Shown here is a 79-nucleotide RNA sequence from Sebaldella termitidis, a member of the family "Fluoride riboswitch aptamer (crcB RNA motif)". Rfam links the family to the GO terms response to fluoride and positive regulation of gene expression. Lineage of the source: Bacteria > Fusobacteriati > Fusobacteriia > Fusobacteriales > Sebaldella termitidis.
[Rfam]
RNA sequence: AUUAAAAAAGGAGAUGAAGCUCUCCGUAGUAUAAAAACUAAAACUACAAUUAUAGAUUGUUAAUAGCUUCUGCAGUAUU
Numbered sequence: 001a002u003u004a005a006a007a008a009a010g011g012a013g014a015u016g017a018a019g020c021u022c023u024c025c026g027u028a029g030u031a032u033a034a035a036a037a038c039u040a041a042a043a044c045u046a047c048a049a050u051u052a053u054a055g056a057u058u059g060u061u062a063a064u065a066g067c068u069u070c071u072g073c074a075g076u077a078u079u
Base pairs, nucleotide, nucleotide: 010025011024012023013022016070017069018068019067020066021065046060047059048058049057